[Rfam]
Plastid-clpP 5UTR RNA: a 69-nucleotide RNA sequence from Acer saccharum. Rfam 15.1 lists 2,105 matches to the family in 526 species. The literature on the family includes a 2023 paper in Plant Commun by Richter et al., "Retrograde signaling in plants: A critical review focusing on the GUN pathway and beyond". Rfam describes the family as follows. Plastid clpP is a non-coding RNA (ncRNA) recognised in plastids. It was found in the prime untranslated region (5UTR) of a protease complex subunit (clpP) in plastids, suggesting a posible cis-regulatory function.

RNA sequence: AAUUUGGUUCAUAGGAAAAAAGAGAAGCAGAACUAUUCUAUACUCAAUAAGCACCAUUACGCAAUGGGG
Numbered sequence: 001a002a003u004u005u006g007g008u009u010c011a012u013a014g015g016a017a018a019a020a021a022g023a024g025a026a027g028c029a030g031a032a033c034u035a036u037u038c039u040a041u042a043c044u045c046a047a048u049a050a051g052c053a054c055c056a057u058u059a060c061g062c063a064a065u066g067g068g069g
Stems, first nucleotide, its partner, number of pairs: 003022002008017003043068003051060001053058001
Dot-bracket structure: ..((...(((....)))...))....................(((.....(.(....).).....))).